[Rfam]
A member of the RNA family "Soft rot Enterobacteriaceae Fwd 6 3'UTR" from Pectobacterium parmentieri, 116 nucleotides long.
RNA sequence: UUUUUGUAAUUAAAUAACAGUAUUGUGUGACCUGGUUUAACUUUGUGUAAUCGAUAACCAUUUUCUAUGAAAGUAAACAACAAAAAAGCCUUUGUUCCCGCGAAAAAAUAGGGUAG
Numbered sequence: 001u002u003u004u005u006g007u008a009a010u011u012a013a014a015u016a017a018c019a020g021u022a023u024u025g026u027g028u029g030a031c032c033u034g035g036u037u038u039a040a041c042u043u044u045g046u047g048u049a050a051u052c053g054a055u056a057a058c059c060a061u062u063u064u065c066u067a068u069g070a071a072a073g074u075a076a077a078c079a080a081c082a083a084a085a086a087a088g089c090c091u092u093u094g095u096u097c098c099c100g101c102g103a104a105a106a107a108a109u110a111g112g113g114u115a116g
Base pairs, nucleotide, nucleotide: 004020005019006018007017035078036077037076038075039074041073042072043071044070047068048067049066053064054063079096080095081094082093083092084091097113098112099111
Dot-bracket structure: ...((((.........))))..............(((((.((((..(((...((........)).))).)))))))))((((((......))))))(((...........)))...
The organism belongs to Pectobacterium parmentieri, within Bacteria. From bacteria cultured under starvation conditions. On this family, see Kwenda et al., BMC Genomics 2016: "Discovery and profiling of small RNAs responsive to stress conditions in the plant pathogen Pectobacterium atrosepticum".